[Rfam]
RNA sequence: GGAGAACGAGAGUAGGCCACCUCCACGUGGUGUUCUCCGGGCAACGGUGCACUGGAACUGCAACGGCUAAGAGGCUACU
Dot-bracket structure: (((((((...........(((.......))))))))))......((.((((.......)))).))..............
The family of this 79-nucleotide RNA from Argiope bruennichi is "HDV ribozyme from F. prausnitzii". Rfam links the family to the GO term catalytic activity. The match comes from Rfam's covariance-model search (46 bits). A reference for the family is Webb et al. (2009), "Widespread occurrence of self-cleaving ribozymes", Science.